[Rfam]
RNA sequence: UUAAAGAAUUUGGAAACUGCAACUUGCAGACCUGGAGAAUUUGAAGACUUCAACUUGCAGACUAGGAGUAUUUGAAGAAUUUGAAG
Numbered sequence: 001u002u003a004a005a006g007a008a009u010u011u012g013g014a015a016a017c018u019g020c021a022a023c024u025u026g027c028a029g030a031c032c033u034g035g036a037g038a039a040u041u042u043g044a045a046g047a048c049u050u051c052a053a054c055u056u057g058c059a060g061a062c063u064a065g066g067a068g069u070a071u072u073u074g075a076a077g078a079a080u081u082u083g084a085a086g
Base pairs, nucleotide, nucleotide: 001084002083003082004081005080009076010075011074012073013072014071017068018067020065025059026058027057028056033052034051035050036049037048
About this RNA: The family of this 86-nucleotide sequence from Solanum lycopersicum is "MIR8024 microRNA precursor family". A search with the family's covariance model found it, with a score of 63 bits. NCBI's taxonomy places the organism under Eukaryota, lamiids, Solanaceae, Solanum, Solanum subgen. Lycopersicon.